[Rfam]
This 125-nucleotide sequence from Crocuta crocuta belongs to the Rfam family "Small nucleolar RNA SNORA28". The family's consensus secondary structure was predicted with RNAfold. The family is grouped with related families in Rfam's "SNORA28 clan". ACA28 is a member of the H/ACA class of snoRNA that guide the sites of modification of uridines to pseudouridines. Taxonomically the source falls in Crocuta (Eukaryota, Deuterostomia, Dipnotetrapodomorpha, Theria). Rfam 15.1 lists 922 matches to the family in 535 species. It scores 78 bits against the family's covariance model.
RNA sequence: AGGCAGCGCUCUGUGGCAGAUGGUUGAAAUUGACUAACACACUAUGAACUUGCUCCAGCAAGAAGGUCUAACCUAUUCAGGUGUUUUCUCCUUGUAAGACCAGCUGUUGCAUAGGCUUAACCAGG
Numbered sequence: 001a002g003g004c005a006g007c008g009c010u011c012u013g014u015g016g017c018a019g020a021u022g023g024u025u026g027a028a029a030u031u032g033a034c035u036a037a038c039a040c041a042c043u044a045u046g047a048a049c050u051u052g053c054u055c056c057a058g059c060a061a062g063a064a065g066g067u068c069u070a071a072c073c074u075a076u077u078c079a080g081g082u083g084u085u086u087u088c089u090c091c092u093u094g095u096a097a098g099a100c101c102a103g104c105u106g107u108u109g110c111a112u113a114g115g116c117u118u119a120a121c122c123a124g125g
Base pairs, nucleotide, nucleotide: 010047011046012041013040014039015038018035019034021032022031064118065117066116067115068114069113070112074111076109080105081104082103087099088098089097